The record is a 135-nucleotide RNA sequence from Manacus vitellinus, which matches "Small nucleolar RNA SNORA84" in Rfam. The source organism's lineage runs through Eukaryota, Metazoa, Sarcopterygii, Sauria and Manacus.
[Rfam]
RNA sequence: GCCCUGUGGUUCCUGGGCACUGCUGUGCCCGUGCAGUGCCCCAGGGUUUAGCAAAGGGCCAACAGUGACACUGUGAUUUUUGCGUGGAAUCUGUGACCUGUGAGCAGCUUCCACAGCCCGGUCACAGUCACACCC
Numbered sequence: 001g002c003c004c005u006g007u008g009g010u011u012c013c014u015g016g017g018c019a020c021u022g023c024u025g026u027g028c029c030c031g032u033g034c035a036g037u038g039c040c041c042c043a044g045g046g047u048u049u050a051g052c053a054a055a056g057g058g059c060c061a062a063c064a065g066u067g068a069c070a071c072u073g074u075g076a077u078u079u080u081u082g083c084g085u086g087g088a089a090u091c092u093g094u095g096a097c098c099u100g101u102g103a104g105c106a107g108c109u110u111c112c113a114c115a116g117c118c119c120g121g122u123c124a125c126a127g128u129c130a131c132a133c134c135c
Base pairs, nucleotide, nucleotide: 001059002058003057004056007050008049011046012045013044014043015042016041017040019037020036021035022034023033071127073125074124075123076122077121078120082117083116084114085113086112087111089109091107092106093105094104